[Rfam]
RNA sequence: AGACCAUAACAAGAGUUUUGUUGUUUAACUUGUGGAUUACUACCUGAAGGAGAACGGUGUCAAGGAGCAAAUGGUCA
Numbered sequence: 001a002g003a004c005c006a007u008a009a010c011a012a013g014a015g016u017u018u019u020g021u022u023g024u025u026u027a028a029c030u031u032g033u034g035g036a037u038u039a040c041u042a043c044c045u046g047a048a049g050g051a052g053a054a055c056g057g058u059g060u061c062a063a064g065g066a067g068c069a070a071a072u073g074g075u076c077a
Stems, first nucleotide, its partner, number of pairs: 002076005009033004038069001040067002043065003
Shown here is a 77-nucleotide RNA from Gloeocapsa sp. PCC 73106, a member of the family "CyVA-1 RNA". Pairs were carried over by alignment from the consensus structure, which is taken from published work. Rfam's curators put it in the seed alignment. The organism belongs to Gloeocapsa, within Bacteria. Rfam describes the family as follows. Cyanobacteria, Acidobacteria (1 example), Verrucomicrobia (1 example).